The family of this 75-nucleotide RNA from Eleutherodactylus coqui is "mir-1421 microRNA precursor family".
Rfam 15.1 lists 110 matches to the family in 14 species.
The base pairs follow the family's consensus structure, which was predicted with RNAalifold.
The organism belongs to Eleutherodactylus, within Eukaryota.
The match comes from Rfam's covariance-model search (47 bits).
[Rfam]
RNA sequence: CUGCUUUUUGGAUGCGGAAAUGCUGCAGAAUGUCCUGUGGAAAAUUCUGCAGCAUUUCCGCAUCCAAAAAGCAGU
Numbered sequence: 001c002u003g004c005u006u007u008u009u010g011g012a013u014g015c016g017g018a019a020a021u022g023c024u025g026c027a028g029a030a031u032g033u034c035c036u037g038u039g040g041a042a043a044a045u046u047c048u049g050c051a052g053c054a055u056u057u058c059c060g061c062a063u064c065c066a067a068a069a070a071g072c073a074g075u
Stems, first nucleotide, its partner, number of pairs: 003072005009066013023052005